[Rfam]
RNA sequence: AGUUUUGCGCAGUGGCAGUAUCCUAGCCAGUGAGGUUUACCCGAGGCGCGAUGAUUGCUAAUUGAAAAGCAUGGGUGAGUCACAGCAGGACCUCUGAGAGGCUGUAUGUGGGAAUGUUGUAAGGAUUUGGAUUUCGGAAUC
Numbered sequence: 001a002g003u004u005u006u007g008c009g010c011a012g013u014g015g016c017a018g019u020a021u022c023c024u025a026g027c028c029a030g031u032g033a034g035g036u037u038u039a040c041c042c043g044a045g046g047c048g049c050g051a052u053g054a055u056u057g058c059u060a061a062u063u064g065a066a067a068a069g070c071a072u073g074g075g076u077g078a079g080u081c082a083c084a085g086c087a088g089g090a091c092c093u094c095u096g097a098g099a100g101g102c103u104g105u106a107u108g109u110g111g112g113a114a115u116g117u118u119g120u121a122a123g124g125a126u127u128u129g130g131a132u133u134u135c136g137g138a139a140u141c
Stems, first nucleotide, its partner, number of pairs: 020052003024048001026047003034042002083110002085107001087105001089103001091101004124141004

U4 spliceosomal RNA: a 141-nucleotide sequence from Heterocephalus glaber. It is annotated as a spliceosomal small nuclear RNA. From the family's description: U4 small nuclear RNA (U4 snRNA) is a component of the major U2-dependent spliceosome. Lineage of the source: Eukaryota > Metazoa > Vertebrata > Eutheria > Heterocephalus.